RNA sequence: UAACUUAUCUAGAGAUAGAUAUCUGAACAAUCAGAAGUCAGCAGAUGUCAUAGUACCUUACUAACUCGGGAUGAUAGUAAGAGAUGAC
Numbered sequence: 001u002a003a004c005u006u007a008u009c010u011a012g013a014g015a016u017a018g019a020u021a022u023c024u025g026a027a028c029a030a031u032c033a034g035a036a037g038u039c040a041g042c043a044g045a046u047g048u049c050a051u052a053g054u055a056c057c058u059u060a061c062u063a064a065c066u067c068g069g070g071a072u073g074a075u076a077g078u079a080a081g082a083g084a085u086g087a088c
Base pairs, nucleotide, nucleotide: 001025002024006021007020008019009018010017011016037046038045039044047088048087049086057081058080059079060078061077062076
This 88-nucleotide RNA from Bacillus yapensis belongs to the Rfam family "Group II catalytic intron D1-D4-1".
It scores 57 bits against the family's covariance model.
From the family's description: Group II introns are found in rRNA, tRNA and mRNA of organelles in fungi, plants and protists, and also in mRNA in bacteria.
The pairing is the family consensus, mapped onto this sequence.
The family has 237 seed sequences and 2,508 matches in Rfam 15.1.
Taxonomically the source falls in Bacillus (Bacteria, Bacillota, Bacilli, Caryophanales).